The family of this 48-nucleotide sequence is "DUF3800-XI RNA".
It is one of the family's seed sequences.
By type it is a small RNA.
From the family's description: Actinobacteria, Firmicutes, Proteobacteria, Spirochaetes (1 example).

RNA sequence: UGGGCUGGUCGAAAGACCCGGGUCCAUCAGCGGAUGGGGGGGUUCUGC
Numbered sequence: 001u002g003g004g005c006u007g008g009u010c011g012a013a014a015g016a017c018c019c020g021g022g023u024c025c026a027u028c029a030g031c032g033g034a035u036g037g038g039g040g041g042g043u044u045c046u047g048c
Stems, first nucleotide, its partner, number of pairs: 001026006007018004